[Rfam]
Nucleotides: 073
Stems, first nucleotide, its partner, number of pairs: 002041004011035003017030005050073009
Number, partner (000 for none) and nucleotide at each position: 001000a002041g003040a004039g005038u006000g007000u008000u009000a010000u011035g012034a013033u014000g015000u016000u017030g018029g019028a020027g021026u022000g023000u024000u025000u026021a027020c028019u029018c030017c031000g032000a033013g034012u035011c036000u037000a038005g039004c040003u041002c042000a043000g044000c045000g046000c047000u048000g049000c050073u051072c052071u053070c054069c055068a056067a057066g058065u059000c060000u061000u062000u063000u064000g065058a066057c067056u068055u069054g070053g071052g072051g073050a
Rfam assigns this 73-nucleotide RNA from Enterococcus phoeniculicola to the family "L17 ribosomal protein downstream element". It is annotated as a cis-regulatory element. Taxonomically the source falls in Enterococcus phoeniculicola (Bacteria, Bacillati, Lactobacillales, Enterococcus). It scores 58 bits against the family's covariance model. The family's consensus secondary structure is taken from published work.